[Rfam]
RNA sequence: GAUGUGGGUGCGCUUUGAAGACGCGGACAGGGAAGAGACAGGACACACACUGCGCAUCUUCCUGUCUCUUCCCUGUCCGCGUCUUCAAAGCGCACCCACAUCG
Numbered sequence: 001g002a003u004g005u006g007g008g009u010g011c012g013c014u015u016u017g018a019a020g021a022c023g024c025g026g027a028c029a030g031g032g033a034a035g036a037g038a039c040a041g042g043a044c045a046c047a048c049a050c051u052g053c054g055c056a057u058c059u060u061c062c063u064g065u066c067u068c069u070u071c072c073c074u075g076u077c078c079g080c081g082u083c084u085u086c087a088a089a090g091c092g093c094a095c096c097c098a099c100a101u102c103g
Stems, first nucleotide, its partner, number of pairs: 001102021023080016040063004